[Rfam]
RNA sequence: CCCAGAGGUAUUGAUAGGUGAAGUCAUCCGCAAGGUUGACUGACUUGAAUUACACCAACCUGCGCAGAUGCGCAGGUUUUUUUU
Numbered sequence: 001c002c003c004a005g006a007g008g009u010a011u012u013g014a015u016a017g018g019u020g021a022a023g024u025c026a027u028c029c030g031c032a033a034g035g036u037u038g039a040c041u042g043a044c045u046u047g048a049a050u051u052a053c054a055c056c057a058a059c060c061u062g063c064g065c066a067g068a069u070g071c072g073c074a075g076g077u078u079u080u081u082u083u084u
Stems, first nucleotide, its partner, number of pairs: 017056004021046001023040004028035001058077008
A member of the RNA family "OmrA-B family" from Enterobacteriaceae bacterium strain FGI 57, 84 nucleotides long. The base pairs follow the family's consensus structure, which was predicted with WAR. The source organism's lineage runs through Bacteria, Pseudomonadati, Pseudomonadota, Enterobacterales and Enterobacteriaceae. The literature on the family includes a 2001 paper in Curr Biol by Argaman et al., "Novel small RNA-encoding genes in the intergenic regions of Escherichia coli". The family's RNA type in Rfam is small RNA.